[Rfam]
RNA: Glutamine riboswitch aptamer (glnA leader)
RNA sequence: UUCGUUCAUCUCUUUAAGAGACGGAAGUAGGUAAUGAUGCCGAAGGAACGCACU
Numbered sequence: 001u002u003c004g005u006u007c008a009u010c011u012c013u014u015u016a017a018g019a020g021a022c023g024g025a026a027g028u029a030g031g032u033a034a035u036g037a038u039g040c041c042g043a044a045g046g047a048a049c050g051c052a053c054u
Base pairs, nucleotide, nucleotide: 003050004049005048006047007046009021010020011019012018024051030041031040032039